[Rfam]
RNA sequence: AAGAUGACAAAGGGAGAGAUCGUUUACGAACGACGCCGAAGGAGCAAGCUGUACUCGCAGUGAAUCUCUCAGGCAAAAAGACUUUUGUCGGACG
Number, nucleotide and partner (000 for none) at each position: 001a000002a000003g000004a000005u000006g089007a088008c087009a086010a085011a084012g083013g082014g000015a000016g000017a000018g000019a000020u033021c032022g031023u030024u000025u000026a000027c000028g000029a000030a023031c022032g021033a020034c000035g074036c073037c072038g070039a069040a000041g000042g068043a067044g066045c000046a000047a000048g061049c060050u000051g000052u000053a000054c000055u000056c000057g000058c000059a000060g049061u048062g000063a000064a000065u000066c044067u043068c042069u039070c038071a000072g037073g036074c035075a000076a000077a000078a000079a000080g000081a000082c013083u012084u011085u010086u009087g008088u007089c006090g000091g000092a000093c000094g000
This 94-nucleotide RNA sequence from Alteribacillus iranensis belongs to the Rfam family "Glycine riboswitch aptamer". A search with the family's covariance model found it, with a score of 72 bits.